Rfam assigns this 67-nucleotide RNA sequence from Cnephaeus nilssonii to the family "mir-9256 microRNA precursor family".
RNA sequence: AAAUACACUGAGUGGCCAGAUUAUUAUGACAUCUGAACACAUAAUAAUCUGGCCACUCAGUGUACUU
Numbered sequence: 001a002a003a004u005a006c007a008c009u010g011a012g013u014g015g016c017c018a019g020a021u022u023a024u025u026a027u028g029a030c031a032u033c034u035g036a037a038c039a040c041a042u043a044a045u046a047a048u049c050u051g052g053c054c055a056c057u058c059a060g061u062g063u064a065c066u067u
Stems, first nucleotide, its partner, number of pairs: 004064014019049010
The base pairs follow the family's consensus structure, which was predicted with RNAalifold.